[Rfam]
RNA: MIR1435 microRNA precursor family
RNA sequence: UGACUUUGGUCAAAGUCAAACUCUUUCAAGUUUGACUAUGUUUAUAAAAAAUAUAGUAAUAUUUUCAACACAAGAAAAAUAUGCCAUAAAAAUAUAUUCAGUUUUGGAUUUAAUGAAACUAAUUUGUUGUUGCAAAUAUUGGUAUAUUUUUCUAUAAAUUUGGUCAACCUUAGAGCAGUUUGACUUUGACCACAGUCAA
Numbered sequence: 001u002g003a004c005u006u007u008g009g010u011c012a013a014a015g016u017c018a019a020a021c022u023c024u025u026u027c028a029a030g031u032u033u034g035a036c037u038a039u040g041u042u043u044a045u046a047a048a049a050a051a052u053a054u055a056g057u058a059a060u061a062u063u064u065u066c067a068a069c070a071c072a073a074g075a076a077a078a079a080u081a082u083g084c085c086a087u088a089a090a091a092a093u094a095u096a097u098u099c100a101g102u103u104u105u106g107g108a109u110u111u112a113a114u115g116a117a118a119c120u121a122a123u124u125u126g127u128u129g130u131u132g133c134a135a136a137u138a139u140u141g142g143u144a145u146a147u148u149u150u151u152c153u154a155u156a157a158a159u160u161u162g163g164u165c166a167a168c169c170u171u172a173g174a175g176c177a178g179u180u181u182g183a184c185u186u187u188g189a190c191c192a193c194a195g196u197c198a199a
Stems, first nucleotide, its partner, number of pairs: 005194001007192003011188012024175003032167004045154002048151004054144002058140007066132002070127005